[Rfam]
This 101-nucleotide RNA sequence from Janibacter indicus belongs to the Rfam family "mraW RNA". A search with the family's covariance model found it, with a score of 53 bits. Rfam classes the family as a cis-regulatory element. The family's consensus secondary structure is taken from published work.
RNA sequence: UGAUGCAGCUGCCGCCCGGCCUCCAGCCGUGACGGCGCCGACCCGACUUCCCCCGGGCCGGAACGUCCCGGAUGGGGACCAGGCGGCAGCAGCGAGCACGA
Numbered sequence: 001u002g003a004u005g006c007a008g009c010u011g012c013c014g015c016c017c018g019g020c021c022u023c024c025a026g027c028c029g030u031g032a033c034g035g036c037g038c039c040g041a042c043c044c045g046a047c048u049u050c051c052c053c054c055g056g057g058c059c060g061g062a063a064c065g066u067c068c069c070g071g072a073u074g075g076g077g078a079c080c081a082g083g084c085g086g087c088a089g090c091a092g093c094g095a096g097c098a099c100g101a
Stems, first nucleotide, its partner, number of pairs: 010088007018080002021077005027071003031067004038061003042057003